[Rfam]
RNA sequence: CAUAUGGUACUUAUCAGCGGUUCGUGAUGAAACAAGAUAAGCAGCGAUAUGGCUUCUUAUGAGGU
Number, nucleotide and partner (000 for none) at each position: 001c051002a050003u049004a048005u047006g000007g045008u044009a000010c000011u040012u039013a038014u037015c036016a000017g000018c000019g000020g000021u000022u000023c000024g000025u000026g000027a000028u000029g000030a000031a000032a000033c000034a000035a000036g015037a014038u013039a012040a011041g000042c000043a000044g008045c007046g000047a005048u004049a003050u002051g001052g000053c000054u000055u000056c000057u000058u000059a000060u000061g000062a000063g000064g000065u000